A member of the RNA family "CRISPR RNA direct repeat element", 51 nucleotides long.
It scores 42 bits against the family's covariance model.
Its family is annotated with defense response in the Gene Ontology.
RNA sequence: GUUGUGAUUUUUUUUUUUUCCUGUGAGUAUCUAGGAACCAUUGGAAGCAGC
Numbered sequence: 001g002u003u004g005u006g007a008u009u010u011u012u013u014u015u016u017u018u019u020c021c022u023g024u025g026a027g028u029a030u031c032u033a034g035g036a037a038c039c040a041u042u043g044g045a046a047g048c049a050g051c
Base pairs, nucleotide, nucleotide: 018037019036020035021034022033023032
Dot-bracket structure: .................((((((........))))))..............